[Rfam]
About this RNA:
Shown here is a 123-nucleotide RNA from Acidaminococcus fermentans, a member of the family "c-di-AMP riboswitch aptamer (ydaO/yuaA leader)". Gene Ontology terms of the family: cyclic-di-AMP binding and regulation of gene expression. The base pairs follow the family's consensus structure.
RNA sequence: UAAAUAAAAAAGCCGAAUCACAGCAAUGUGAACGGGGGAACCAAAGUGGGGUUAAUUUCUUCGGAAUAGGGCAUCUCGACCCGCACCCGGCAGCUAACUUCGUAGGCGUAAUCGAGAGGAUGU
Numbered sequence: 001u002a003a004a005u006a007a008a009a010a011a012g013c014c015g016a017a018u019c020a021c022a023g024c025a026a027u028g029u030g031a032a033c034g035g036g037g038g039a040a041c042c043a044a045a046g047u048g049g050g051g052u053u054a055a056u057u058u059c060u061u062c063g064g065a066a067u068a069g070g071g072c073a074u075c076u077c078g079a080c081c082c083g084c085a086c087c088c089g090g091c092a093g094c095u096a097a098c099u100u101c102g103u104a105g106g107c108g109u110a111a112u113c114g115a116g117a118g119g120a121u122g123u
Stems, first nucleotide, its partner, number of pairs: 012107003018031003032103006042048002049088003057066003069082003